[Rfam]
RNA sequence: AUCCAUGCGCAGUGGCAGUAUCGUAGCCAAUGAGGUUUAACCGAGGUGCGAUUAUUGCUAGUUGAAAACUUGACCCAAUACCCCGCCUUGAUGACUUGAAAUAUAGUCAGCAAUGGCAAUUUUUGACGGUCUCUAUUGAGA
Numbered sequence: 001a002u003c004c005a006u007g008c009g010c011a012g013u014g015g016c017a018g019u020a021u022c023g024u025a026g027c028c029a030a031u032g033a034g035g036u037u038u039a040a041c042c043g044a045g046g047u048g049c050g051a052u053u054a055u056u057g058c059u060a061g062u063u064g065a066a067a068a069c070u071u072g073a074c075c076c077a078a079u080a081c082c083c084c085g086c087c088u089u090g091a092u093g094a095c096u097u098g099a100a101a102u103a104u105a106g107u108c109a110g111c112a113a114u115g116g117c118a119a120u121u122u123u124u125g126a127c128g129g130u131c132u133c134u135a136u137u138g139a140g141a
Stems, first nucleotide, its partner, number of pairs: 020052005026047003034042003085117003088113003092109005130141004
RNA: U4 spliceosomal RNA